Record summary: A member of the RNA family "c-di-AMP riboswitch aptamer (ydaO/yuaA leader)" from Arthrobacter woluwensis, 157 nucleotides long. The pairing is the family consensus, mapped onto this sequence. The match comes from Rfam's covariance-model search (54 bits).
Nucleotides: 157
Stems, first nucleotide, its partner, number of pairs: 003027003028138006038065002066123003074100004103117004
Number, partner (000 for none) and nucleotide at each position: 001000c002000g003027u004026u005025c006000g007000u008000a009000a010000c011000u012000a013000c014000u015000u016000c017000g018000u019000c020000u021000g022000g023000c024000a025005g026004a027003g028138g029137c030136g031135g032134g033133g034000g035000a036000a037000c038065c039064a040000a041000u042000u043000c044000u045000g046000g047000c048000c049000u050000u051000g052000u053000g054000u055000g056000c057000a058000a059000g060000g061000c062000c063000u064039u065038g066123g067122g068121g069000u070000u071000a072000a073000g074100u075099c076098g077097u078000c079000a080000g081000a082000u083000c084000g085000c086000g087000a088000a089000a090000g091000c092000g093000a094000c095000g096000g097077a098076c099075g100074g101000c102000c103117g104116g105115a106114u107000g108000g109000c110000u111000c112000c113000c114106a115105u116104c117103c118000g119000a120000a121068u122067c123066c124000g125000a126000c127000a128000g129000c130000u131000c132000a133033c134032c135031u136030c137029g138028u139000a140000g141000g142000c143000a144000u145000c146000g147000g148000g149000a150000g151000a152000g153000g154000c155000u156000u157000u